This 112-nucleotide RNA sequence from Bacillus sp. FJAT-27231 belongs to the Rfam family "SAM riboswitch aptamer (S box leader)".
[Rfam]
Nucleotides: 112
Base pairs, nucleotide, nucleotide: 001112002111003110004109005108006107007106008105013043014042015041016040017039021032022031023030026081027080028079029078044073045072046071047070049069050068052064053063054062077104082101083100084099085098086097087096
Number, partner (000 for none) and nucleotide at each position: 001112u002111u003110c004109u005108u006107a007106u008105c009000a010000a011000g012000a013043g014042a015041a016040g017039c018000u019000g020000a021032g022031g023030g024000g025000a026081c027080u028079g029078g030023c031022c032021c033000u034000g035000u036000g037000a038000a039017g040016c041015u042014u043013c044073a045072g046071c047070a048000a049069c050068c051000a052064g053063c054062c055000g056000c057000u058000a059000g060000c061000g062054g063053g064052c065000c066000u067000a068050g069049g070047u071046g072045c073044u074000a075000a076000a077104u078029c079028c080027a081026g082101c083100a084099a085098a086097c087096u088000g089000c090000u091000u092000u093000g094000u095000c096087a097086g098085u099084u100083u101082g102000a103000g104077a105008g106007a107006u108005a109004a110003g111002a112001a

Taxonomically the source falls in Bacillus (Bacteria, Bacillati, Bacilli, Caryophanales).
The family's consensus secondary structure is taken from published work.
Rfam links the family to the GO term regulation of gene expression.